[Rfam]
RNA sequence: CAGUGAUUUCAGCUCUUUUAGUAUUUGUCCAGCAGGUUUCCCGCCCCGCGGGAAGCCCCA
Numbered sequence: 001c002a003g004u005g006a007u008u009u010c011a012g013c014u015c016u017u018u019u020a021g022u023a024u025u026u027g028u029c030c031a032g033c034a035g036g037u038u039u040c041c042c043g044c045c046c047c048g049c050g051g052g053a054a055g056c057c058c059c060a
Stems, first nucleotide, its partner, number of pairs: 035057010
RNA: U7 small nuclear RNA